[Rfam]
RNA sequence: GGUCAUGAGUGCCAGUGACAAGCCCCGGCUCGCUGGUCAGCAACCCUCCUCCGCGGUGGGGUGCUCCGGGUGACGACCUGGCCGAUCCCCGACGCGUUCGUGACGUCGAGGCCCGGCAAGCGCGGACC
Numbered sequence: 001g002g003u004c005a006u007g008a009g010u011g012c013c014a015g016u017g018a019c020a021a022g023c024c025c026c027g028g029c030u031c032g033c034u035g036g037u038c039a040g041c042a043a044c045c046c047u048c049c050u051c052c053g054c055g056g057u058g059g060g061g062u063g064c065u066c067c068g069g070g071u072g073a074c075g076a077c078c079u080g081g082c083c084g085a086u087c088c089c090c091g092a093c094g095c096g097u098u099c100g101u102g103a104c105g106u107c108g109a110g111g112c113c114c115g116g117c118a119a120g121c122g123c124g125g126a127c128c
Base pairs, nucleotide, nucleotide: 001078002077003076004075009038011037012036013035014034015033016032021030022029039065040064041063044061045060046059048056049055081117082116083115084114087111088110090108091107092106093105094104
Shown here is a 128-nucleotide sequence from Intrasporangium oryzae, a member of the family "SAM (S-adenosyl methionine) riboswitch aptamer". Clan: SAM clan. Rfam describes the family as follows. SAM-IV is a mRNA element that regulates gene expression via direct sensing of S-adenosylmethionine (SAM or AdoMet). SAM-IV riboswitches share conserved nucleotide positions with the previously described SAM-I riboswitches sequence analysis and molecular recognition experiments suggest that SAM-I and SAM-IV riboswitches share similar ligand binding sites, but have different scaffolds. Taxonomically the source falls in Intrasporangium oryzae (Bacteria, Actinomycetota, Actinomycetes, Intrasporangiaceae).